Rfam assigns this 97-nucleotide RNA from Zingiber officinale to the family "MIR535 microRNA precursor family". The base pairs follow the family's consensus structure, which was predicted with RNAalifold. Rfam links the family to the GO terms miRNA-mediated post-transcriptional gene silencing and RISC complex.
[Rfam]
RNA sequence: UUGGUUGGUUGACAACGAGAGAGAGCACGCCGGUCCACAGUCCAUACCGGCUGUUAUGGUCUUGUACUAGCGUGCUCUUUCUCGUUGUCACCCGGUU
Numbered sequence: 001u002u003g004g005u006u007g008g009u010u011g012a013c014a015a016c017g018a019g020a021g022a023g024a025g026c027a028c029g030c031c032g033g034u035c036c037a038c039a040g041u042c043c044a045u046a047c048c049g050g051c052u053g054u055u056a057u058g059g060u061c062u063u064g065u066a067c068u069a070g071c072g073u074g075c076u077c078u079u080u081c082u083c084g085u086u087g088u089c090a091c092c093c094g095g096u097u
Stems, first nucleotide, its partner, number of pairs: 010090005016084002020080002023077001025075006032068003
The literature on the family includes a 2010 paper in Nucleic Acids Res by Zeng et al., "Conservation and divergence of microRNAs and their functions in Euphorbiaceous plants".